[Rfam]
RNA sequence: AUGUGUUCAAUAGGGAUGAUUUGAGAACAUAUGUAUGUGCAUAUUUUGUUUUGUUUUUAACAUUUUUGUGUAAAUGUGACACAUAUGUUCUCAGGUCGCCCCUGUAGAACUAUU
Numbered sequence: 001a002u003g004u005g006u007u008c009a010a011u012a013g014g015g016a017u018g019a020u021u022u023g024a025g026a027a028c029a030u031a032u033g034u035a036u037g038u039g040c041a042u043a044u045u046u047u048g049u050u051u052u053g054u055u056u057u058u059a060a061c062a063u064u065u066u067u068g069u070g071u072a073a074a075u076g077u078g079a080c081a082c083a084u085a086u087g088u089u090c091u092c093a094g095g096u097c098g099c100c101c102c103u104g105u106a107g108a109a110c111u112a113u114u
Stems, first nucleotide, its partner, number of pairs: 007108002011104004017098003023092012
RNA: MIR398 microRNA precursor family